Record summary: This 76-nucleotide RNA from Aotus nancymaae belongs to the Rfam family "mir-320 microRNA precursor family". On this family, see Berezikov et al., Genome Res 2006: "Many novel mammalian microRNA candidates identified by extensive cloning and RAKE analysis". The source organism's lineage runs through Eukaryota, Teleostomi, Sarcopterygii, Primates and Aotus.
RNA sequence: CCAAAACCUGGGCUUCUCUUCCUGGUUCUUCCCGGAGUCAGGAAAAGUUGGAUUGAGAGGAUGAAAUAUAAUAAUG
Numbered sequence: 001c002c003a004a005a006a007c008c009u010g011g012g013c014u015u016c017u018c019u020u021c022c023u024g025g026u027u028c029u030u031c032c033c034g035g036a037g038u039c040a041g042g043a044a045a046a047g048u049u050g051g052a053u054u055g056a057g058a059g060g061a062u063g064a065a066a067u068a069u070a071a072u073a074a075u076g
Stems, first nucleotide, its partner, number of pairs: 014059005022051004029044004034039001